[Rfam]
RNA: c-di-AMP riboswitch aptamer (ydaO/yuaA leader)
Organism: Sediminivirga luteola
RNA sequence: GAGACGGCAGAGCGGAACACAUCAAGGCGAUGGCGGGGGACCCACUCACCGCUGGCGAUCAGCCGGCUUGGGGUGAAGCCCUCUGAGGGACGCGGACACCGCGUCGCAAGGCGGGCCGAGCAUCUCCAGCUCGAAUCCGACAGCUCACCUCGCAGGUCCAUGGAGAUUACCU
Numbered sequence: 001g002a003g004a005c006g007g008c009a010g011a012g013c014g015g016a017a018c019a020c021a022u023c024a025a026g027g028c029g030a031u032g033g034c035g036g037g038g039g040a041c042c043c044a045c046u047c048a049c050c051g052c053u054g055g056c057g058a059u060c061a062g063c064c065g066g067c068u069u070g071g072g073g074u075g076a077a078g079c080c081c082u083c084u085g086a087g088g089g090a091c092g093c094g095g096a097c098a099c100c101g102c103g104u105c106g107c108a109a110g111g112c113g114g115g116c117c118g119a120g121c122a123u124c125u126c127c128a129g130c131u132c133g134a135a136u137c138c139g140a141c142a143g144c145u146c147a148c149c150u151c152g153c154a155g156g157u158c159c160a161u162g163g164a165g166a167u168u169a170c171c172u
Stems, first nucleotide, its partner, number of pairs: 006158003013032002033153006043070002071138003079115003118132004